[Rfam]
Notes: The record is a 102-nucleotide RNA from Saliterribacillus persicus, which matches "Purine riboswitch aptamer" in Rfam. The family's consensus secondary structure is taken from published work.
RNA sequence: AAAUUAGCGAAUCAACCCCUUCGUAUAUGUUUAAGAAUAUGGCUUAAAUGUUUCUACCAAAACACCGAAAAUGUUUGGACUAUGAAGGCGGAAAUCACUGUA
Numbered sequence: 001a002a003a004u005u006a007g008c009g010a011a012u013c014a015a016c017c018c019c020u021u022c023g024u025a026u027a028u029g030u031u032u033a034a035g036a037a038u039a040u041g042g043c044u045u046a047a048a049u050g051u052u053u054c055u056a057c058c059a060a061a062a063c064a065c066c067g068a069a070a071a072u073g074u075u076u077g078g079a080c081u082a083u084g085a086a087g088g089c090g091g092a093a094a095u096c097a098c099u100g101u102a
Stems, first nucleotide, its partner, number of pairs: 018088008029049007058078001060076005